[Rfam]
RNA sequence: GCGCCGUUAAGGAUUCAUUAAGCUUUACAGGCGUUUACUAUGUGCAUCCAGUGAUCUGGAUUCUUACCGAGUGGUUGGAGCCACUUUGUUUGACGCCUCCCUGUUAAACUCCUGAGAGCCGCCUUACCCGCGGCUCUUUUUUU
Numbered sequence: 001g002c003g004c005c006g007u008u009a010a011g012g013a014u015u016c017a018u019u020a021a022g023c024u025u026u027a028c029a030g031g032c033g034u035u036u037a038c039u040a041u042g043u044g045c046a047u048c049c050a051g052u053g054a055u056c057u058g059g060a061u062u063c064u065u066a067c068c069g070a071g072u073g074g075u076u077g078g079a080g081c082c083a084c085u086u087u088g089u090u091u092g093a094c095g096c097c098u099c100c101c102u103g104u105u106a107a108a109c110u111c112c113u114g115a116g117a118g119c120c121g122c123c124u125u126a127c128c129c130g131c132g133g134c135u136c137u138u139u140u141u142u143u
Stems, first nucleotide, its partner, number of pairs: 001045004005012001019037005047060004069086006092105004114138009
Alphaproteobacterial sRNA BjrC1505: a 143-nucleotide RNA from Mesorhizobium sanjuanii.
The literature on the family includes a 2012 paper in RNA Biol by Madhugiri et al., "Small RNAs of the Bradyrhizobium/Rhodopseudomonas lineage and their analysis".
Taxonomically the source falls in Mesorhizobium (Bacteria, Alphaproteobacteria, Hyphomicrobiales, Phyllobacteriaceae).
It is annotated as a small RNA.
Pairs were carried over by alignment from the consensus structure.